A member of the RNA family "Small nucleolar RNA SNORA73 family" from Cavia porcellus, 190 nucleotides long. About the family: U17 (SNORA73A and SNORA73B) also known as E1 belongs to the H/ACA class of small nucleolar RNAs (snoRNAs). Vertebrate U17 is intron-encoded and ranges in length from 200-230 nucleotides, longer than most snoRNAs. It is one of the most abundant snoRNAs in human cells and is essential for the cleavage of pre-rRNA within the 5' external transcribed spacer (ETS). This cleavage leads to the formation of 18S rRNA. Regions of the U17 RNA are complementary to rRNA and act as guides for RNA/RNA interactions, although these regions do not seem to be well conserved between organisms. The match comes from Rfam's covariance-model search (134 bits). For this family Rfam cites "Comparative Structure Analysis of Vertebrate U17 Small Nucleolar RNA (snoRNA)" (Cervelli et al., J Mol Evol, 2002). The family's consensus secondary structure is taken from published work.
RNA sequence: CCAAGGUGGAUACCCGGGAGGUCACUCUCCCCGGCUCUGUCCAGGUGGCGUAAGGGAGUAUAGGGCUCUGCCCGGUGAUGUCCAGUCCCUUUCCGCCACGCUAGGCCUUGUGUCUGCGCCUGCAUAUUCCUACAACUUAUCAGAGUCUUUUGGGCAGUGACUGCGGAGGUAAAGCAUGCAGGAAACAGUG
Numbered sequence: 001c002c003a004a005g006g007u008g009g010a011u012a013c014c015c016g017g018g019a020g021g022u023c024a025c026u027c028u029c030c031c032c033g034g035c036u037c038u039g040u041c042c043a044g045g046u047g048g049c050g051u052a053a054g055g056g057a058g059u060a061u062a063g064g065g066c067u068c069u070g071c072c073c074g075g076u077g078a079u080g081u082c083c084a085g086u087c088c089c090u091u092u093c094c095g096c097c098a099c100g101c102u103a104g105g106c107c108u109u110g111u112g113u114c115u116g117c118g119c120c121u122g123c124a125u126a127u128u129c130c131u132a133c134a135a136c137u138u139a140u141c142a143g144a145g146u147c148u149u150u151u152g153g154g155c156a157g158u159g160a161c162u163g164c165g166g167a168g169g170u171a172a173a174g175c176a177u178g179c180a181g182g183a184a185a186c187a188g189u190g
Base pairs, nucleotide, nucleotide: 001105002104004102005101006099007098008042009041010040011039012038014034015033016032017028018027019026020025045096046095047094048093054089055088056087057086058083060081061080062079063076119182120181121180122179123178124177125176136168137167138166141163145155146154147153148152